Overview
The record is a 63-nucleotide RNA, which matches "pemK RNA" in Rfam.
RNA sequence: AUAAUGAUACUUCCGCCGCAAGGCGGCUCGGUGAGAACCACGGAGGGGUAAAACGGCCCAUGG
Dot-bracket structure: ...........(((((......))))(((.(((.....))).)))(((........))))...

It is annotated as a cis-regulatory element. It is one of the family's seed sequences.